[Rfam]
RNA sequence: AAUUUGAGAUUCGCGUGGUUGCAUUAGAAUAUGAUGAAGAUGCACCAUGGUGAUUCUUGAAUUCA
Numbered sequence: 001a002a003u004u005u006g007a008g009a010u011u012c013g014c015g016u017g018g019u020u021g022c023a024u025u026a027g028a029a030u031a032u033g034a035u036g037a038a039g040a041u042g043c044a045c046c047a048u049g050g051u052g053a054u055u056c057u058u059g060a061a062u063u064c065a
Stems, first nucleotide, its partner, number of pairs: 001063009011053003014049006021043005
The family of this 65-nucleotide RNA sequence from Pristionchus pacificus is "mir-8356 microRNA precursor family".
The source organism's lineage runs through Eukaryota, Protostomia, Ecdysozoa, Diplogasteromorpha and Pristionchus.
Pairs were carried over by alignment from the consensus structure, which was predicted with RNAalifold.
Gene Ontology terms of the family: miRNA-mediated post-transcriptional gene silencing and RISC complex.